[Rfam]
A member of the RNA family "c-di-GMP-I riboswitch aptamer" from Desulforhopalus singaporensis, 119 nucleotides long. Rfam links the family to the GO term cyclic-di-GMP binding.

RNA sequence: UUCCCGAAAAGGCAAAACUACUGCAAAGUAGUGACGCAAAGCCCAAGGAUCCGUUGUCCGGAACUACGGUCGGUAAGUUAAAUACCGACGCCGGACAUCAGGACAGCCUGGCUGCCGAA
Numbered sequence: 001u002u003c004c005c006g007a008a009a010a011g012g013c014a015a016a017a018c019u020a021c022u023g024c025a026a027a028g029u030a031g032u033g034a035c036g037c038a039a040a041g042c043c044c045a046a047g048g049a050u051c052c053g054u055u056g057u058c059c060g061g062a063a064c065u066a067c068g069g070u071c072g073g074u075a076a077g078u079u080a081a082a083u084a085c086c087g088a089c090g091c092c093g094g095a096c097a098u099c100a101g102g103a104c105a106g107c108c109u110g111g112c113u114g115c116c117g118a119a
Stems, first nucleotide, its partner, number of pairs: 012037002017032006040113004046109003050103002